Rfam assigns this 80-nucleotide sequence from Alligator sinensis to the family "Mammalian CPEB3 ribozyme".
Taxonomically the source falls in Alligator (Eukaryota, Craniata, Vertebrata, Amniota).
The mammalian CPEB3 ribozyme is a self cleaving RNA located in the second intron of the CPEB3 gene which belongs to a family of genes regulating messenger RNA polyadenylation. This ribozyme is highly conserved and found only in mammals. The CPEB3 ribozyme is structurally and biochemically related to the human hepatitis delta virus (HDV) ribozyme and the HDV ribozyme is proposed to have arisen from the human transcriptome.
Pairs were carried over by alignment from the consensus structure, which is taken from published work.
RNA sequence: AGAGGUCAUAAGUGUGAGGCCAUAGAAGAAAUGCACAUUGUGUGGCCCUGUCAGAUUCCAAUAAAUCUUCAAAUUCUGCU
Numbered sequence: 001a002g003a004g005g006u007c008a009u010a011a012g013u014g015u016g017a018g019g020c021c022a023u024a025g026a027a028g029a030a031a032u033g034c035a036c037a038u039u040g041u042g043u044g045g046c047c048c049u050g051u052c053a054g055a056u057u058c059c060a061a062u063a064a065a066u067c068u069u070c071a072a073a074u075u076c077u078g079c080u
Stems, first nucleotide, its partner, number of pairs: 016048001018047004024080002027077004031043003053068005